This 80-nucleotide RNA sequence from Cnephaeus nilssonii belongs to the Rfam family "mir-9186 microRNA precursor family". The family's consensus secondary structure was predicted with RNAalifold. Gene Ontology terms of the family: RISC complex and miRNA-mediated post-transcriptional gene silencing. The family has 31 seed sequences and 143 matches in Rfam 15.1. The match comes from Rfam's covariance-model search (74 bits).
[Rfam]
RNA sequence: UAGGGGGAGGAGGGCGGCAUGUCUGGUACUGUGGACAGCCAUUACCUCAGUACCAGUGAUGCCGCUCACCUCCCCCUACA
Numbered sequence: 001u002a003g004g005g006g007g008a009g010g011a012g013g014g015c016g017g018c019a020u021g022u023c024u025g026g027u028a029c030u031g032u033g034g035a036c037a038g039c040c041a042u043u044a045c046c047u048c049a050g051u052a053c054c055a056g057u058g059a060u061g062c063c064g065c066u067c068a069c070c071u072c073c074c075c076c077u078a079c080a
Stems, first nucleotide, its partner, number of pairs: 001078005007072004013066008023056009